[Rfam]
RNA sequence: GAAACACAGGUGAGAAUCCUGUGCGCCGAUUGACUAAGGGUUCCAGGGGACGGUUGUUCCGCCCUGGGUUAGUCUGGGCCUAAGGCGAGGCCGAGAGGCGUAGUCGAUGGAUAACCGGUUGAUAUUCCGGUACCCGAGUGCCGCGUAUGAGUGAUAGCGGUUGUGCUAACCGGCUGCGAGCCGGCGAGUGGUCGCCUUCGGGUGGUCGCUUGUUGGUGAGUGGUUGGGGUCCUUUCCGUGUGUAGCGUAGUGAUGGGGUGACGCAGUGGGGUAGCCGUACCGUCUGGUGGAUUAGGCGGGGUAAGGUGGUAGCCCGCGUUCCUAGGCAAAUCCGGGAACGCUGCUUUCAAUAGCGAGGGUGAGCGCUGAAGCAUAGGCCUGUAGGCCGAAUUCGGUGAUCCCGUGCUGUCGAGAAAAGCCUCUAGCGAGUGGUAGUCGGCCAGUACCCUAAACCGACACUGGUGGUCAGGUAGAGUAUACUGAGGCGUU
Numbered sequence: 001g002a003a004a005c006a007c008a009g010g011u012g013a014g015a016a017u018c019c020u021g022u023g024c025g026c027c028g029a030u031u032g033a034c035u036a037a038g039g040g041u042u043c044c045a046g047g048g049g050a051c052g053g054u055u056g057u058u059c060c061g062c063c064c065u066g067g068g069u070u071a072g073u074c075u076g077g078g079c080c081u082a083a084g085g086c087g088a089g090g091c092c093g094a095g096a097g098g099c100g101u102a103g104u105c106g107a108u109g110g111a112u113a114a115c116c117g118g119u120u121g122a123u124a125u126u127c128c129g130g131u132a133c134c135c136g137a138g139u140g141c142c143g144c145g146u147a148u149g150a151g152u153g154a155u156a157g158c159g160g161u162u163g164u165g166c167u168a169a170c171c172g173g174c175u176g177c178g179a180g181c182c183g184g185c186g187a188g189u190g191g192u193c194g195c196c197u198u199c200g201g202g203u204g205g206u207c208g209c210u211u212g213u214u215g216g217u218g219a220g221u222g223g224u225u226g227g228g229g230u231c232c233u234u235u236c237c238g239u240g241u242g243u244a245g246c247g248u249a250g251u252g253a254u255g256g257g258g259u260g261a262c263g264c265a266g267u268g269g270g271g272u273a274g275c276c277g278u279a280c281c282g283u284c285u286g287g288u289g290g291a292u293u294a295g296g297c298g299g300g301g302u303a304a305g306g307u308g309g310u311a312g313c314c315c316g317c318g319u320u321c322c323u324a325g326g327c328a329a330a331u332c333c334g335g336g337a338a339c340g341c342u343g344c345u346u347u348c349a350a351u352a353g354c355g356a357g358g359g360u361g362a363g364c365g366c367u368g369a370a371g372c373a374u375a376g377g378c379c380u381g382u383a384g385g386c387c388g389a390a391u392u393c394g395g396u397g398a399u400c401c402c403g404u405g406c407u408g409u410c411g412a413g414a415a416a417a418g419c420c421u422c423u424a425g426c427g428a429g430u431g432g433u434a435g436u437c438g439g440c441c442a443g444u445a446c447c448c449u450a451a452a453c454c455g456a457c458a459c460u461g462g463u464g465g466u467c468a469g470g471u472a473g474a475g476u477a478u479a480c481u482g483a484g485g486c487g488u489u
Stems, first nucleotide, its partner, number of pairs: 005023006024487004032467004038447002043067006052060002074443004079110002084105003088101001090099003114131005134439004139434006250426002255422005263409004269402003274396004280299005301372002305367004312360003317340007325333002374389001376387004453462002469481004

The record is a 489-nucleotide part of an RNA from Glycomyces terrestris, which matches "Bacterial large subunit ribosomal RNA" in Rfam. The organism belongs to Glycomyces, within Bacteria. The family's consensus secondary structure is taken from published work. Its family is annotated with structural constituent of ribosome and ribosome in the Gene Ontology.